Notes: Glycine riboswitch aptamer: a 99-nucleotide sequence from Gemella sp. GH3. Gene Ontology term of the family: glycine biosynthetic process.
[Rfam]
RNA sequence: UUGAUGAGUGUGGGAGAGUCUCAUUCGAGCACCGAAGGUACAAGUUAGUAAUUAGCAAUUUCUAAUGAAAUUCUCAGGUAAAAGAACCACAGUCGGACA
Numbered sequence: 001u002u003g004a005u006g007a008g009u010g011u012g013g014g015a016g017a018g019u020c021u022c023a024u025u026c027g028a029g030c031a032c033c034g035a036a037g038g039u040a041c042a043a044g045u046u047a048g049u050a051a052u053u054a055g056c057a058a059u060u061u062c063u064a065a066u067g068a069a070a071u072u073c074u075c076a077g078g079u080a081a082a083a084g085a086a087c088c089a090c091a092g093u094c095g096g097a098c099a
Base pairs, nucleotide, nucleotide: 006094007093009091010090011089012088013087020029021028022027031079032078033077034075035074038073040071044066045065046064047063048062